This 83-nucleotide RNA from Neogobius melanostomus belongs to the Rfam family "mir-187 microRNA precursor family". Its family is annotated with miRNA-mediated post-transcriptional gene silencing and RISC complex in the Gene Ontology. Pairs were carried over by alignment from the consensus structure, which was predicted with RNAalifold. Taxonomically the source falls in Neogobius (Eukaryota, Neopterygii, Eurypterygia, Gobiaria). The family has 27 seed sequences and 636 matches in Rfam 15.1.

RNA sequence: UUGGCCGGGCCGGGGCUGCAACACAGGACAUGGGUCUGCAUACCCAGCCCGCUCGUGUCUUGUGUUGCAGCCAGUGGAUCGGC
Numbered sequence: 001u002u003g004g005c006c007g008g009g010c011c012g013g014g015g016c017u018g019c020a021a022c023a024c025a026g027g028a029c030a031u032g033g034g035u036c037u038g039c040a041u042a043c044c045c046a047g048c049c050c051g052c053u054c055g056u057g058u059c060u061u062g063u064g065u066u067g068c069a070g071c072c073a074g075u076g077g078a079u080c081g082g083c
Base pairs, nucleotide, nucleotide: 011076012075014072015071016070017069019067020066021065022064023063024062025061026060027059028058029057031055032054033053034052